[Rfam]
RNA sequence: CAACAACGGAAAGGAGGUGAUCCAGUGUCUCAUUGUCAUCAGCCGCGGUCGUCGGCGGACUUGGCCUGGAUCGUCGCCUCCGGCCUUUGCGCCUGAGCGCCGAUUGAGGAAGCCGCCGGACCGCGGUCCGGCAAUGGAAGGGCCGCUCCGGAAACGGAGCGGCCCU
Numbered sequence: 001c002a003a004c005a006a007c008g009g010a011a012a013g014g015a016g017g018u019g020a021u022c023c024a025g026u027g028u029c030u031c032a033u034u035g036u037c038a039u040c041a042g043c044c045g046c047g048g049u050c051g052u053c054g055g056c057g058g059a060c061u062u063g064g065c066c067u068g069g070a071u072c073g074u075c076g077c078c079u080c081c082g083g084c085c086u087u088u089g090c091g092c093c094u095g096a097g098c099g100c101c102g103a104u105u106g107a108g109g110a111a112g113c114c115g116c117c118g119g120a121c122c123g124c125g126g127u128c129c130g131g132c133a134a135u136g137g138a139a140g141g142g143c144c145g146c147u148c149c150g151g152a153a154a155c156g157g158a159g160c161g162g163c164c165c166u
Stems, first nucleotide, its partner, number of pairs: 016023002031136007044069001047066005071076001078108001089100004113126004139166012
RNA: caulobacter sRNA CC2171